[Rfam]
The family of this 79-nucleotide RNA from Roseococcus suduntuyensis is "Makes More Granules Regulator RNA (mmgR)". SuhB later renamed mmgR (makes more granules regulator) was a putative non-coding RNA found multiple times in the Agrobacterium tumefaciens genome and related alpha-proteobacteria. The base pairs follow the family's consensus structure. Taxonomically the source falls in Roseococcus (Bacteria, Pseudomonadati, Pseudomonadota, Acetobacterales). The match comes from Rfam's covariance-model search (45 bits).
RNA sequence: UCUUUCUGCCGUGUGACUGGCGUUUCCUCCCUUAACUUGGGCCGCUCCCUGACGGGGGUGGCCCUUUCUUUUUUUUAAC
Dot-bracket structure: .......(((........))).................(((((((((........)))))))))...............